[Rfam]
Nucleotides: 212
Base pairs, nucleotide, nucleotide: 001032002031003030004029005028006027007026043074044073045072046071047070048069061174062173063172064171065170084159085158086157087156089155090154091153092152093151094150160205161204162203163202164201165200178195179194180193181192182191
Number, partner (000 for none) and nucleotide at each position: 001032c002031g003030a004029g005028g006027c007026u008000u009000g010000g011000a012000a013000u014000c015000a016000u017000g018000a019000u020000g021000c022000u023000g024000u025000g026007g027006g028005c029004c030003u031002c032001g033000c034000c035000a036000g037000c038000g039000u040000c041000u042000a043074g044073c045072g046071g047070g048069u049000g050000a051000u052000c053000a054000c055000g056000g057000g058000g059000a060000u061174c062173u063172c064171c065170a066000c067000a068000c069048a070047c071046c072045c073044g074043c075000c076000g077000g078000u079000a080000u081000a082000g083000c084159c085158g086157c087156g088000u089155c090154a091153c092152u093151a094150c095000u096000a097000a098000a099000g100000u101000a102000g103000g104000c105000c106000g107000a108000a109000a110000g111000g112000g113000g114000a115000a116000g117000c118000u119000c120000g121000c122000a123000u124000u125000g126000c127000u128000c129000c130000u131000a132000u133000c134000g135000c136000u137000c138000c139000g140000a141000a142000u143000u144000u145000u146000a147000u148000a149000u150094g151093u152092a153091g154090u155089g156087c157086g158085c159084g160205c161204c162203a163202c164201a165200c166000g167000c168000c169000g170065u171064g172063g173062a174061g175000g176000g177000g178195u179194a180193g181192c182191u183000g184000g185000g186000u187000g188000g189000a190000c191182a192181g193180c194179u195178a196000g197000a198000a199000a200165g201164u202163g203162u204161g205160g206000g207000a208000c209000g210000c211000c212000g